Background: Rfam assigns this 92-nucleotide sequence from Lynx pardinus to the family "Small nucleolar RNA SNORD111". NCBI's taxonomy places the organism under Eukaryota, Chordata, Amniota, Mammalia, Lynx. For this family Rfam cites "Purified box C/D snoRNPs are able to reproduce site-specific 2'-O-methylation of target RNA in vitro" (Galardi et al., Mol Cell Biol, 2002). By type it is a C/D-box small nucleolar RNA. It scores 61 bits against the family's covariance model. Rfam links the family to the GO terms RNA processing and nucleolus.
RNA sequence: UAGCCUAAAAUGAUGACUCUUUAAAUUUCAUGUCUUUUUUCUGACAUUUUUCUCUGGAGAAAGUUCUUGAUGUUGCUCAUUUAUUCAGGAUG
Numbered sequence: 001u002a003g004c005c006u007a008a009a010a011u012g013a014u015g016a017c018u019c020u021u022u023a024a025a026u027u028u029c030a031u032g033u034c035u036u037u038u039u040u041c042u043g044a045c046a047u048u049u050u051u052c053u054c055u056g057g058a059g060a061a062a063g064u065u066c067u068u069g070a071u072g073u074u075g076c077u078c079a080u081u082u083a084u085u086c087a088g089g090a091u092g
Base pairs, nucleotide, nucleotide: 001092002091004089005088